[Rfam]
RNA sequence: UAGUGAUUUCAGCUCUUUUUGUAUUUGUCUAGCAGGCUUUCUGCUUUCGCGGAGAGCCUUU
Numbered sequence: 001u002a003g004u005g006a007u008u009u010c011a012g013c014u015c016u017u018u019u020u021g022u023a024u025u026u027g028u029c030u031a032g033c034a035g036g037c038u039u040u041c042u043g044c045u046u047u048c049g050c051g052g053a054g055a056g057c058c059u060u061u
Base pairs, nucleotide, nucleotide: 035058036057037056038055039054040053041052042051043050044049